[Rfam]
RNA sequence: CGACCCGCAGCGGGAGAGCCCGGAGCAGCCAGCCCCGGUCGCCGAAGGAGCAACUCUCCCCGACAACCUCUCAGGCCCCAGGACCGCCGUGGGUCG
Numbered sequence: 001c002g003a004c005c006c007g008c009a010g011c012g013g014g015a016g017a018g019c020c021c022g023g024a025g026c027a028g029c030c031a032g033c034c035c036c037g038g039u040c041g042c043c044g045a046a047g048g049a050g051c052a053a054c055u056c057u058c059c060c061c062g063a064c065a066a067c068c069u070c071u072c073a074g075g076c077c078c079c080a081g082g083a084c085c086g087c088c089g090u091g092g093g094u095c096g
Base pairs, nucleotide, nucleotide: 006091007090008089010087011086012085013084020038021037022036023035041076042075043074044072045071048070049069050068055063056062
RNA: Glycine riboswitch aptamer